[Rfam]
The record is a 224-nucleotide RNA sequence from Albula glossodonta, which matches "Small nucleolar RNA SNORA73 family" in Rfam. Lineage of the source: Eukaryota > Vertebrata > Elopocephalai > Albulinae > Albula. The family's consensus secondary structure is taken from published work. Rfam's curators write: U17 (SNORA73A and SNORA73B) also known as E1 belongs to the H/ACA class of small nucleolar RNAs (snoRNAs). It is annotated as an H/ACA-box small nucleolar RNA. Gene Ontology terms of the family: RNA processing and nucleolus. On this family, see Enright et al., RNA 1996: "5'ETS rRNA processing facilitated by four small RNAs: U14, E3, U17, and U3". Rfam 15.1 lists 2,326 matches to the family in 660 species.
RNA sequence: CCAACGUGGGCAUCCUGUGAGGUUGCUCUCACAUGGCUCUGUCCUUGUGGCGUAUGGGAGCGCAGCACUUCAACAGUGCCAUGACGUACAGUCCCGUUCCACGACGUUGGAGAGCAAGCCUGUCCCCGGCCUUCGGGCUGGUGUGGACGGUGUCCUGUAUAUUCCUACAUCUUCCCAGAGCCUUGGGGCCAUGACUGGGGAGGUAAACCAUGCAGGGCACAUGU
Numbered sequence: 001c002c003a004a005c006g007u008g009g010g011c012a013u014c015c016u017g018u019g020a021g022g023u024u025g026c027u028c029u030c031a032c033a034u035g036g037c038u039c040u041g042u043c044c045u046u047g048u049g050g051c052g053u054a055u056g057g058g059a060g061c062g063c064a065g066c067a068c069u070u071c072a073a074c075a076g077u078g079c080c081a082u083g084a085c086g087u088a089c090a091g092u093c094c095c096g097u098u099c100c101a102c103g104a105c106g107u108u109g110g111a112g113a114g115c116a117a118g119c120c121u122g123u124c125c126c127c128g129g130c131c132u133u134c135g136g137g138c139u140g141g142u143g144u145g146g147a148c149g150g151u152g153u154c155c156u157g158u159a160u161a162u163u164c165c166u167a168c169a170u171c172u173u174c175c176c177a178g179a180g181c182c183u184u185g186g187g188g189c190c191a192u193g194a195c196u197g198g199g200g201a202g203g204u205a206a207a208c209c210a211u212g213c214a215g216g217g218c219a220c221a222u223g224u
Base pairs, nucleotide, nucleotide: 001110002109003108004107005106006105007104008044009043010042011041012040014036015035019028020027021026047102048101049100050099056095057094058093059092060089062087063086065082154216155215156214157213158212159211160210171202172201173200174199175198176197180189181188182187
Dot-bracket structure: ((((((((((((.((...(((....)))......))...)))))..((((.....(((((.((.(................)...)).)..))))...)))).)))))))...........................................(((((((..........((((((...(((....))).......)))))).......)))))))........